[Rfam]
RNA sequence: AUGUUUCCUGUAUAAUUAUAUUUCGUAGAGAAGUUAAGGCGGUGGCUAUCUCUUAAAAAUGGAGGUGGUGCUUAUGGUUAAAAAACUAUUCGCGCUACUCCAUAUUCUUAAAUGAAGGAGUAGCUUAGUAUCCAUUUGGGGUGCGUUACAAUUAAUGCUAAUUUUUGGUACUUUUGUGAUUAAUUUGAUCGCACUAG
Numbered sequence: 001a002u003g004u005u006u007c008c009u010g011u012a013u014a015a016u017u018a019u020a021u022u023u024c025g026u027a028g029a030g031a032a033g034u035u036a037a038g039g040c041g042g043u044g045g046c047u048a049u050c051u052c053u054u055a056a057a058a059a060u061g062g063a064g065g066u067g068g069u070g071c072u073u074a075u076g077g078u079u080a081a082a083a084a085a086c087u088a089u090u091c092g093c094g095c096u097a098c099u100c101c102a103u104a105u106u107c108u109u110a111a112a113u114g115a116a117g118g119a120g121u122a123g124c125u126u127a128g129u130a131u132c133c134a135u136u137u138g139g140g141g142u143g144c145g146u147u148a149c150a151a152u153u154a155a156u157g158c159u160a161a162u163u164u165u166u167g168g169u170a171c172u173u174u175u176g177u178g179a180u181u182a183a184u185u186u187g188a189u190c191g192c193a194c195u196a197g
Stems, first nucleotide, its partner, number of pairs: 042171003046167001061109002064099005070093002128149003132145001133143003176192004181188001
Shown here is a 197-nucleotide sequence from Lactobacillus acetotolerans, a member of the family "Listeria sRNA rli28". It is annotated as a small RNA. A search with the family's covariance model found it, with a score of 63 bits. The source organism's lineage runs through Bacteria, Bacillati, Lactobacillales, Lactobacillaceae and Lactobacillus. The base pairs follow the family's consensus structure, which was predicted with RNAalifold.